[Rfam]
Rfam assigns this 407-nucleotide RNA sequence from Kaustia mangrovi to the family "Bacterial RNase P class A". A reference for the family is Frank and Pace (1998), "Ribonuclease P: unity and diversity in a tRNA processing ribozyme", Annu Rev Biochem. The match comes from Rfam's covariance-model search (307 bits). It is annotated as a ribozyme.

RNA sequence: CCAGUUGGCCGGAUGGCCGCUCCGGUGCGGGUCUCCCGCAUCGGGGAGGAAAGUCCGGGCUCCAUGGAAACACGGUGCCGGGUAACGCCCGGCGGGGGCGACCCCAGGGAAAGUGCCACAGAAAGCAAACCGCCCCGGGGAACCGGGGUAAGGGUGAAAGGGUGCGGUAAGAGCGCACCGCGCCUCCGGCGACGGAGGCGGCACGGUAAACCCCACCGGGAGCAAGACCGAAUAGGGGCGGCAUGGGCGCGCUGUCUUGCAGUGUGGCCCAAAUCGCGUUUCCGGAUCGCCGCCCGGGUUGGUCGCGCGAGGUGCGCGGCAACGCGCAUCCCAGAGGAAUGGCCAUCCAGCGGGCCCCUUUGCGGGGGCUUCGUGGACAGAACCCGGCUUACAGGCCAACUGGCGUU
Dot-bracket structure: ((((((((((((((((((.(((((((((.........)))))))))....[[[.[[[[[((((.....[[..((((((((((.....)))))(((((....)))).)((...(((((............(((((((((....)))))))..)).......((((((.......))))))(((((((((....)))))))).)..)))..)))))))))))))...((((......((((((...............................(((....]]...)))..)))))).....))))......((((((((....))))))))..........)))))))...................................]]]]]]]].).))))))))))....
Numbered sequence: 001c002c003a004g005u006u007g008g009c010c011g012g013a014u015g016g017c018c019g020c021u022c023c024g025g026u027g028c029g030g031g032u033c034u035c036c037c038g039c040a041u042c043g044g045g046g047a048g049g050a051a052a053g054u055c056c057g058g059g060c061u062c063c064a065u066g067g068a069a070a071c072a073c074g075g076u077g078c079c080g081g082g083u084a085a086c087g088c089c090c091g092g093c094g095g096g097g098g099c100g101a102c103c104c105c106a107g108g109g110a111a112a113g114u115g116c117c118a119c120a121g122a123a124a125g126c127a128a129a130c131c132g133c134c135c136c137g138g139g140g141a142a143c144c145g146g147g148g149u150a151a152g153g154g155u156g157a158a159a160g161g162g163u164g165c166g167g168u169a170a171g172a173g174c175g176c177a178c179c180g181c182g183c184c185u186c187c188g189g190c191g192a193c194g195g196a197g198g199c200g201g202c203a204c205g206g207u208a209a210a211c212c213c214c215a216c217c218g219g220g221a222g223c224a225a226g227a228c229c230g231a232a233u234a235g236g237g238g239c240g241g242c243a244u245g246g247g248c249g250c251g252c253u254g255u256c257u258u259g260c261a262g263u264g265u266g267g268c269c270c271a272a273a274u275c276g277c278g279u280u281u282c283c284g285g286a287u288c289g290c291c292g293c294c295c296g297g298g299u300u301g302g303u304c305g306c307g308c309g310a311g312g313u314g315c316g317c318g319g320c321a322a323c324g325c326g327c328a329u330c331c332c333a334g335a336g337g338a339a340u341g342g343c344c345a346u347c348c349a350g351c352g353g354g355c356c357c358c359u360u361u362g363c364g365g366g367g368g369c370u371u372c373g374u375g376g377a378c379a380g381a382a383c384c385c386g387g388c389u390u391a392c393a394g395g396c397c398a399a400c401u402g403g404c405g406u407u
Stems, first nucleotide, its partner, number of pairs: 001403010011392001012347007020046009051390003055387005060222004069281002073218005078092005093107001094105004108213002113211002115207003130153002132149007161179006180202001181200008226304004236295006273287003311330008